[Rfam]
RNA sequence: GGGUGCCGCAUCCCUCGAUGCGGCAGGUUCAGCGACGGUCGGGCCGCCUCG
Numbered sequence: 001g002g003g004u005g006c007c008g009c010a011u012c013c014c015u016c017g018a019u020g021c022g023g024c025a026g027g028u029u030c031a032g033c034g035a036c037g038g039u040c041g042g043g044c045c046g047c048c049u050c051g
Stems, first nucleotide, its partner, number of pairs: 005024008033051003037048003
RNA: nhaA-I RNA
Organism: Ramlibacter sp. WS9